[Rfam]
RNA sequence: UGGUAGAUGCACCCUGAUUCAAAUCCCUGGCUUCACGUUAGGGAUUUUUUUG
Numbered sequence: 001u002g003g004u005a006g007a008u009g010c011a012c013c014c015u016g017a018u019u020c021a022a023a024u025c026c027c028u029g030g031c032u033u034c035a036c037g038u039u040a041g042g043g044a045u046u047u048u049u050u051u052g
Stems, first nucleotide, its partner, number of pairs: 002013003024044008
This 52-nucleotide RNA sequence from filamentous cyanobacterium CCP2 belongs to the Rfam family "Nitrogen stress-induced RNA 1". The base pairs follow the family's consensus structure. Taxonomically the source falls in Cyanobacteriota (Bacteria, Bacillati). The literature on the family includes a 2010 paper in J Mol Biol by Ionescu et al., "Heterocyst-specific transcription of NsiR1, a non-coding RNA encoded in a tandem array of direct repeats in cyanobacteria".